[Rfam]
RNA: Plant small nucleolar RNA U3
Organism: Nicotiana sylvestris
RNA sequence: ACGACCUUACUUGAACAGGAUCUGUUCUAUAGGCUAGUGGUACCACUGUAUCCUUAAGGAGACAGAAAACCAAGUCUGGUUGAUUGAUGAGGCAUAGCUAUUGGACCAGAGCCUGAAUAAUAGGCCCCACAGCCCCUCGGGUCAUGGUGCCGUAGAUGAUCGUUCUCAGCCCCAAGGUGCGUUGAGAUGAUCUAAUGGCUGUCUGACAGACU
Numbered sequence: 001a002c003g004a005c006c007u008u009a010c011u012u013g014a015a016c017a018g019g020a021u022c023u024g025u026u027c028u029a030u031a032g033g034c035u036a037g038u039g040g041u042a043c044c045a046c047u048g049u050a051u052c053c054u055u056a057a058g059g060a061g062a063c064a065g066a067a068a069a070c071c072a073a074g075u076c077u078g079g080u081u082g083a084u085u086g087a088u089g090a091g092g093c094a095u096a097g098c099u100a101u102u103g104g105a106c107c108a109g110a111g112c113c114u115g116a117a118u119a120a121u122a123g124g125c126c127c128c129a130c131a132g133c134c135c136c137u138c139g140g141g142u143c144a145u146g147g148u149g150c151c152g153u154a155g156a157u158g159a160u161c162g163u164u165c166u167c168a169g170c171c172c173c174a175a176g177g178u179g180c181g182u183u184g185a186g187a188u189g190a191u192c193u194a195a196u197g198g199c200u201g202u203c204u205g206a207c208a209g210a211c212u
Stems, first nucleotide, its partner, number of pairs: 001038002003035001005033003013027006046065004051060003074211005097199009107189002110164003120153002123150001128146002132142004166185005171177002